[Rfam]
RNA: Lysine riboswitch aptamer
Organism: Eubacterium sp. CAG:274
RNA sequence: UAAUAAGAUAGAGGUGCGAUGUUUAUUAGUAGAUUUACUGACGGACAGAAACGGUUGAGGUAAGUAGAAAGGAAAUGUUGCCGAAGAAUUGCAUUUUUUCUGUAGAUGUAGUUCUGGUUGCUGUGGCUAAUAGCCCUGUGACUGUCACUAUGUAGGCGAGAUAGCCUUUAGUGGAGCGCUAUCUGUGUU
Dot-bracket structure: .....((((((....(((((((((........(((((((...................))))))).......)))))))))...((((((((((((.......))))))))))))((((((.(.(........).).)))))).((((((..................))))))....)))))).....